[Rfam]
RNA sequence: GCCGGAGUAGCUCAGCUGGUAGAGCAGCGCACUUGUAAUGCGAAGGUCGUAGGUUCGACUCCUAUCUCCGGCA
Numbered sequence: 001g002c003c004g005g006a007g008u009a010g011c012u013c014a015g016c017u018g019g020u021a022g023a024g025c026a027g028c029g030c031a032c033u034u035g036u037a038a039u040g041c042g043a044a045g046g047u048c049g050u051a052g053g054u055u056c057g058a059c060u061c062c063u064a065u066c067u068c069c070g071g072c073a
Stems, first nucleotide, its partner, number of pairs: 001072007010025004028042004049065005
This 73-nucleotide sequence from Ectothiorhodosinus mongolicus belongs to the Rfam family "tRNA". By type it is a transfer RNA.